Description: The record is a 130-nucleotide sequence from Oscillospiraceae bacterium Marseille-Q3528, which matches "NiCo (Nickel/Cobalt) riboswitch aptamer" in Rfam. A reference for the family is Furukawa et al. (2015), "Bacterial riboswitches cooperatively bind Ni(2+) or Co(2+) ions and control expression of heavy metal transporters", Mol Cell. Its family is annotated with metal ion homeostasis and cobalt ion binding in the Gene Ontology. A search with the family's covariance model found it, with a score of 60 bits.
[Rfam]
RNA sequence: ACAGUACAAACUGAGCAGGCGACAAGAACUUCACAGAUACAGGGAAGCUCCUGUUGGCCGGGCCAUAUAUGGCAGCAGAUGAAUUUAUUUUUGCAUAUUUUCGGAAAACAACAGCAUCUGUGGGACAGUA
Numbered sequence: 001a002c003a004g005u006a007c008a009a010a011c012u013g014a015g016c017a018g019g020c021g022a023c024a025a026g027a028a029c030u031u032c033a034c035a036g037a038u039a040c041a042g043g044g045a046a047g048c049u050c051c052u053g054u055u056g057g058c059c060g061g062g063c064c065a066u067a068u069a070u071g072g073c074a075g076c077a078g079a080u081g082a083a084u085u086u087a088u089u090u091u092u093g094c095a096u097a098u099u100u101u102c103g104g105a106a107a108a109c110a111a112c113a114g115c116a117u118c119u120g121u122g123g124g125a126c127a128g129u130a
Base pairs, nucleotide, nucleotide: 010129011128012127013126016124018059019058020057022054023053024052026050027049062073063072064071065070075121076120077119078118079117080116
Dot-bracket structure: .........((((..(.(((.(((.((.....................)).)))..)))..((((....)))).((((((...................................))))))..).)))).